[Rfam]
RNA sequence: GCAGUGAUUGUAAACAUCCUACACUCUCAGCUGUGAACAUAAGGUGGCUGGGAGAAGGGUGUUUACUCCCCCUGC
Numbered sequence: 001g002c003a004g005u006g007a008u009u010g011u012a013a014a015c016a017u018c019c020u021a022c023a024c025u026c027u028c029a030g031c032u033g034u035g036a037a038c039a040u041a042a043g044g045u046g047g048c049u050g051g052g053a054g055a056a057g058g059g060u061g062u063u064u065a066c067u068c069c070c071c072c073u074g075c
Stems, first nucleotide, its partner, number of pairs: 002074003006070001010066011024054009

Shown here is a 75-nucleotide RNA sequence from Xenopus tropicalis, a member of the family "mir-30 microRNA precursor family". The base pairs follow the family's consensus structure, which was predicted with PFOLD. It is one of the family's seed sequences. From the family's description: This family consists of the mammalian microRNA (miRNA) precursor mir-30a. Animal miRNAs are transcribed as ~70nt precursors and subsequently processed by the Dicer enzyme to give a ~22nt product. In this case the mature sequence comes from both the 3' (miR-30) and 5' (mir-97-6) arms of the precursor. The source organism's lineage runs through Eukaryota, Metazoa, Eumetazoa, Craniata and Silurana.